Shown here is a 224-nucleotide RNA from Nakamurella leprariae, a member of the family "Actinobacteria sRNA Ms_IGR-5".
RNA sequence: ACACGGGAGAGGAGGUGGUCCUGAGUUGAACAUCAACAGGACUCGUGAGGUGGUUGGCCGCUAGGCCACGAUCACCGUCGGGCAGACCACGUCGUGGAUGACCAGCGUGGCCGUGUCCUGGCAAUUCCGGACAAUCACCCGACCCCCGGGCCGCCGACCUCGUCCAGUCGGCCCGCGCUCCCGCACCGUGCGGGGGAGCGGACCAGGCCCGGGGGUCGUCCGCG
Numbered sequence: 001a002c003a004c005g006g007g008a009g010a011g012g013a014g015g016u017g018g019u020c021c022u023g024a025g026u027u028g029a030a031c032a033u034c035a036a037c038a039g040g041a042c043u044c045g046u047g048a049g050g051u052g053g054u055u056g057g058c059c060g061c062u063a064g065g066c067c068a069c070g071a072u073c074a075c076c077g078u079c080g081g082g083c084a085g086a087c088c089a090c091g092u093c094g095u096g097g098a099u100g101a102c103c104a105g106c107g108u109g110g111c112c113g114u115g116u117c118c119u120g121g122c123a124a125u126u127c128c129g130g131a132c133a134a135u136c137a138c139c140c141g142a143c144c145c146c147c148g149g150g151c152c153g154c155c156g157a158c159c160u161c162g163u164c165c166a167g168u169c170g171g172c173c174c175g176c177g178c179u180c181c182c183g184c185a186c187c188g189u190g191c192g193g194g195g196g197a198g199c200g201g202a203c204c205a206g207g208c209c210c211g212g213g214g215g216u217c218g219u220c221c222g223c224g
Stems, first nucleotide, its partner, number of pairs: 014058001016056004060122006067115004072110003140218013153172006

The family's RNA type in Rfam is small RNA. The match comes from Rfam's covariance-model search (73 bits).